[Rfam]
RNA: Streptomyces RNA 6925
Organism: Streptomyces kanasensis
RNA sequence: GUAGUACAGCCGCAGCCGGUGUUGCCCGUGGGAAGGGCCGGCGCGGCGAUGACGGGUCGGUCUCUCCACCGUUGCCUCGGCUGGAGAUAGGACUCUUCGCGAUCGGCGCCUGGGAGUUGCCUCUCCCGGGCGCCGCAG
Numbered sequence: 001g002u003a004g005u006a007c008a009g010c011c012g013c014a015g016c017c018g019g020u021g022u023u024g025c026c027c028g029u030g031g032g033a034a035g036g037g038c039c040g041g042c043g044c045g046g047c048g049a050u051g052a053c054g055g056g057u058c059g060g061u062c063u064c065u066c067c068a069c070c071g072u073u074g075c076c077u078c079g080g081c082u083g084g085a086g087a088u089a090g091g092a093c094u095c096u097u098c099g100c101g102a103u104c105g106g107c108g109c110c111u112g113g114g115a116g117u118u119g120c121c122u123c124u125c126c127c128g129g130g131c132g133c134c135g136c137a138g
Stems, first nucleotide, its partner, number of pairs: 001100002006050001010046004015042005025036002054093001057091002063087006070080001104135013